[Rfam]
RNA sequence: GGGGGGUAUCAAUUCCAUGUGUUCUUGAUGGCGUCAUCUUACUGUUAAAUUUCAUUAUUUGAAGUUUAAAAUGAGCAAGAUUUUUUAGAUGCUACAAGUGUUACAGUUUCUCUGUAAUAGGAUUAUGAUACAUGGUAGAUAAAUUCCUUGGGAAGAUGUAUCUCCAGCUGUUGAAGAGGGGGAAGCCUUUCUCUUCUUCUUCGAUUCAAUCUGAUACAAUUGGUCAUAAUUCUUCCCACAUCU
Numbered sequence: 001g002g003g004g005g006g007u008a009u010c011a012a013u014u015c016c017a018u019g020u021g022u023u024c025u026u027g028a029u030g031g032c033g034u035c036a037u038c039u040u041a042c043u044g045u046u047a048a049a050u051u052u053c054a055u056u057a058u059u060u061g062a063a064g065u066u067u068a069a070a071a072u073g074a075g076c077a078a079g080a081u082u083u084u085u086u087a088g089a090u091g092c093u094a095c096a097a098g099u100g101u102u103a104c105a106g107u108u109u110c111u112c113u114g115u116a117a118u119a120g121g122a123u124u125a126u127g128a129u130a131c132a133u134g135g136u137a138g139a140u141a142a143a144u145u146c147c148u149u150g151g152g153a154a155g156a157u158g159u160a161u162c163u164c165c166a167g168c169u170g171u172u173g174a175a176g177a178g179g180g181g182g183a184a185g186c187c188u189u190u191c192u193c194u195u196c197u198u199c200u201u202c203g204a205u206u207c208a209a210u211c212u213g214a215u216a217c218a219a220u221u222g223g224u225c226a227u228a229a230u231u232c233u234u235c236c237c238a239c240a241u242c243u
Stems, first nucleotide, its partner, number of pairs: 015135008024098004029094007036081004099127003150237004155232002164223004169218003176202004181197005
This 243-nucleotide sequence from Vanderwaltozyma polyspora belongs to the Rfam family "Small nucleolar RNA snR31". Rfam links the family to the GO terms RNA processing and nucleolus. Taxonomically the source falls in Vanderwaltozyma polyspora (Eukaryota, Ascomycota, Saccharomycetes, Saccharomycetales). On this family, see Dandekar and Tollervey, Nucleic Acids Res 1993: "Identification and functional analysis of a novel yeast small nucleolar RNA". The family's RNA type in Rfam is H/ACA-box small nucleolar RNA. Clan: SNORA8 clan.